[Rfam]
RNA: RAGATH-10 RNA
RNA sequence: GAAACCUCAUCUUGCUCACACGCCAUCCGGGCGUUGAGCAGUGUUUUUUGCAAGAAAGCACAGGCAUCCCGCCUGGGUGAGGAGAGAGU
Numbered sequence: 001g002a003a004a005c006c007u008c009a010u011c012u013u014g015c016u017c018a019c020a021c022g023c024c025a026u027c028c029g030g031g032c033g034u035u036g037a038g039c040a041g042u043g044u045u046u047u048u049u050g051c052a053a054g055a056a057a058g059c060a061c062a063g064g065c066a067u068c069c070c071g072c073c074u075g076g077g078u079g080a081g082g083a084g085a086g087a088g089u
Stems, first nucleotide, its partner, number of pairs: 005082008015038003020034005041061003044057005062074004